[Rfam]
RNA sequence: GAGUGUGCCUGUUUGGCGAGUCUAACCGGUCGACCCGGGGAGGCGUAGGGAAACCGAUACGGCCGCAGCAUUGCCAGGGCCACCGUGUUCAAGCGCGGGGAGUCAAACACGCACUACCCGAAACCGAGCGAUCUACGCGCAGGCAGGGCGAAGCGUGCCGAAAGGCACGUGGAGGCCCGUUAGGGGUGGUGUCCUACAAUACCCUCCCGUGAUCUGCGUGUAGGGGUGAAAGGCCCAUCGAGCUCGGCAACAGCUGGUU
Numbered sequence: 001g002a003g004u005g006u007g008c009c010u011g012u013u014u015g016g017c018g019a020g021u022c023u024a025a026c027c028g029g030u031c032g033a034c035c036c037g038g039g040g041a042g043g044c045g046u047a048g049g050g051a052a053a054c055c056g057a058u059a060c061g062g063c064c065g066c067a068g069c070a071u072u073g074c075c076a077g078g079g080c081c082a083c084c085g086u087g088u089u090c091a092a093g094c095g096c097g098g099g100g101a102g103u104c105a106a107a108c109a110c111g112c113a114c115u116a117c118c119c120g121a122a123a124c125c126g127a128g129c130g131a132u133c134u135a136c137g138c139g140c141a142g143g144c145a146g147g148g149c150g151a152a153g154c155g156u157g158c159c160g161a162a163a164g165g166c167a168c169g170u171g172g173a174g175g176c177c178c179g180u181u182a183g184g185g186g187u188g189g190u191g192u193c194c195u196a197c198a199a200u201a202c203c204c205u206c207c208c209g210u211g212a213u214c215u216g217c218g219u220g221u222a223g224g225g226g227u228g229a230a231a232g233g234c235c236c237a238u239c240g241a242g243c244u245c246g247g248c249a250a251c252a253g254c255u256g257g258u259u
Base pairs, nucleotide, nucleotide: 005114006113007112008111010109011108012107013106014105015104016103017102020044021043022042023041026038027037028036029035048055049054061081062080063079064078068074069073084097085096086095087094117257118256120254124247125246126245127244128243129242133223134222135221136220137219138218139217140216141215142214143213144211146178147177148176149175153170154169155168156167157166158165159164183208184207185206186205188204189203191202192201225235226234227233
Rfam assigns this 259-nucleotide part of an RNA from uncultured archaeon A07HR60 to the family "Archaeal large subunit ribosomal RNA". Its Rfam clan is "LSU clan".